[Rfam]
About this RNA
The family of this 76-nucleotide RNA sequence from Aquarana catesbeiana is "mir-130 microRNA precursor family". On this family, see Lagos-Quintana et al., Curr Biol 2002: "Identification of tissue-specific microRNAs from mouse". Its family is annotated with RISC complex and miRNA-mediated post-transcriptional gene silencing in the Gene Ontology. The family has 9 seed sequences and 2,580 matches in Rfam 15.1. A search with the family's covariance model found it, with a score of 41 bits.

RNA sequence: UGCGCUGUCAGUGCUCACCCACAUUGCGCUGUCAGUGCUCACCCACAGCGCAAUGUGGGUGAGCACUGACAGCGCA
Numbered sequence: 001u002g003c004g005c006u007g008u009c010a011g012u013g014c015u016c017a018c019c020c021a022c023a024u025u026g027c028g029c030u031g032u033c034a035g036u037g038c039u040c041a042c043c044c045a046c047a048g049c050g051c052a053a054u055g056u057g058g059g060u061g062a063g064c065a066c067u068g069a070c071a072g073c074g075c076a
Base pairs, nucleotide, nucleotide: 001076002075003074006071007070008069009068010067011066013064014063015062016061017060018059019058022055023054024053025052026051027050028049029048030047